[Rfam]
RNA sequence: AUUUGAUUAAAAGCGCCUGGACUGCAUGCUGAUGCAGUUGACGAGGAGGAGGUUUAUCGAAGAUCGGCGGAUACCUCCCGGUUGACGUCACGACCGAGAAGCGAUUGCACAAAGAAGCAAGGUGACUUGUUUGACAAAGGCAAUCGUAUGACGAGAC
Numbered sequence: 001a002u003u004u005g006a007u008u009a010a011a012a013g014c015g016c017c018u019g020g021a022c023u024g025c026a027u028g029c030u031g032a033u034g035c036a037g038u039u040g041a042c043g044a045g046g047a048g049g050a051g052g053u054u055u056a057u058c059g060a061a062g063a064u065c066g067g068c069g070g071a072u073a074c075c076u077c078c079c080g081g082u083u084g085a086c087g088u089c090a091c092g093a094c095c096g097a098g099a100a101g102c103g104a105u106u107g108c109a110c111a112a113a114g115a116a117g118c119a120a121g122g123u124g125a126c127u128u129g130u131u132u133g134a135c136a137a138a139g140g141c142a143a144u145c146g147u148a149u150g151a152c153g154a155g156a157c
Stems, first nucleotide, its partner, number of pairs: 020039008048078005057067004079096006101147007115132007
Dot-bracket structure: ...................((((((((....))))))))........(((((....((((...))))......)))))((((((......))))))....(((((((.......(((((((....)))))))........)))))))..........
Overview:
glmS glucosamine-6-phosphate activated ribozyme aptamer: a 157-nucleotide RNA sequence from Seinonella peptonophila. The family's RNA type in Rfam is riboswitch. The source organism's lineage runs through Bacteria, Bacillati, Bacillota, Bacilli and Seinonella. This entry contains a glucosamine-6-phosphate activated ribozyme that is found in the mRNA for GlmS. GlmS is an enzyme that uses fructose-6-phosphate and glutamine to generate glucosamine-6-phosphate. The base pairs follow the family's consensus structure, which is taken from published work. It scores 125 bits against the family's covariance model.